[Rfam]
RNA sequence: AGGAGGCCUGAGAAGGUUAGGCAGCUUGUGCCGCGCUGUAAUAACUGGUUUAUACCUCCGAGAGGAAGCAACGAAACACAACGUGGUGGCUCUGGAACCCCACAGGGCUGCCGGAUGCUUGUGUUUGACAUUGA
Numbered sequence: 001a002g003g004a005g006g007c008c009u010g011a012g013a014a015g016g017u018u019a020g021g022c023a024g025c026u027u028g029u030g031c032c033g034c035g036c037u038g039u040a041a042u043a044a045c046u047g048g049u050u051u052a053u054a055c056c057u058c059c060g061a062g063a064g065g066a067a068g069c070a071a072c073g074a075a076a077c078a079c080a081a082c083g084u085g086g087u088g089g090c091u092c093u094g095g096a097a098c099c100c101c102a103c104a105g106g107g108c109u110g111c112c113g114g115a116u117g118c119u120u121g122u123g124u125u126u127g128a129c130a131u132u133g134a
Base pairs, nucleotide, nucleotide: 002059003058004057005056006055015046016045017044018043021039022038023037024036025035076126078124081122082121085118092113094111096109